[Rfam]
RNA sequence: GAGAGGCGUGAAGCAUUCUGUGCCCCAAAAGGGUUCGGAACUUCAUGGGGAAGCACGUCUCUAGUCAAAUCAUUCUCCGCUGCGAGAAUGACGUAGACCAACGGUAGGUCACCAGUUAUUGGAAACUGGAUGUGCGGGUUCAAGUCCCGUCGUCAAUAAAAAGCAAAAGUCCUUCCCCUGCCGAGGAGCAAAAGCGCCUUAAUCCCAGACCCUCGGGAAUCUGGGCCGCACAAUAGUCCCGCAAGGUGAGUGCGGUUUGUAGGCAAGUACUGCAGCAGUGAGACGGCCAUCUCAUCGCGAAGGGAAAGCCGCAGAGUAGCUUUCGGCAUGACGAGUGGUUCACGGUAACGGACCAGGCGUGAGAACUAGGUCAGGGAUGGCCUGGAGAAGCAGCGAAUCAAUAAUGCUGCGAAAGGUUCUCGAUAGCGGGUGUACUCUCAACCU
Numbered sequence: 001g002a003g004a005g006g007c008g009u010g011a012a013g014c015a016u017u018c019u020g021u022g023c024c025c026c027a028a029a030a031g032g033g034u035u036c037g038g039a040a041c042u043u044c045a046u047g048g049g050g051a052a053g054c055a056c057g058u059c060u061c062u063a064g065u066c067a068a069a070u071c072a073u074u075c076u077c078c079g080c081u082g083c084g085a086g087a088a089u090g091a092c093g094u095a096g097a098c099c100a101a102c103g104g105u106a107g108g109u110c111a112c113c114a115g116u117u118a119u120u121g122g123a124a125a126c127u128g129g130a131u132g133u134g135c136g137g138g139u140u141c142a143a144g145u146c147c148c149g150u151c152g153u154c155a156a157u158a159a160a161a162a163g164c165a166a167a168a169g170u171c172c173u174u175c176c177c178c179u180g181c182c183g184a185g186g187a188g189c190a191a192a193a194g195c196g197c198c199u200u201a202a203u204c205c206c207a208g209a210c211c212c213u214c215g216g217g218a219a220u221c222u223g224g225g226c227c228g229c230a231c232a233a234u235a236g237u238c239c240c241g242c243a244a245g246g247u248g249a250g251u252g253c254g255g256u257u258u259g260u261a262g263g264c265a266a267g268u269a270c271u272g273c274a275g276c277a278g279u280g281a282g283a284c285g286g287c288c289a290u291c292u293c294a295u296c297g298c299g300a301a302g303g304g305a306a307a308g309c310c311g312c313a314g315a316g317u318a319g320c321u322u323u324c325g326g327c328a329u330g331a332c333g334a335g336u337g338g339u340u341c342a343c344g345g346u347a348a349c350g351g352a353c354c355a356g357g358c359g360u361g362a363g364a365a366c367u368a369g370g371u372c373a374g375g376g377a378u379g380g381c382c383u384g385g386a387g388a389a390g391c392a393g394c395g396a397a398u399c400a401a402u403a404a405u406g407c408u409g410c411g412a413a414a415g416g417u418u419c420u421c422g423a424u425a426g427c428g429g430g431u432g433u434a435c436u437c438u439c440a441a442c443c444u
Base pairs, nucleotide, nucleotide: 002062003061004060005059006058007057008056009055010044011043012042013041017039018038019037020036022034023033024032025031047178048177049176050175051174052173053172163242164241179328180327181326182325183324184323185322187321188320189319195359196358197357198356199355204225205224206223207222208221209220210217211216226255227254228253229252230251238246239245258313259312260311262309271299272298273297278295279294280293282291283290337354338353339352340351341350361421362420363419364418365417366416367384368383369382370381371380372379373378385437386436387435390410391409392408393407394406395405429443430442431441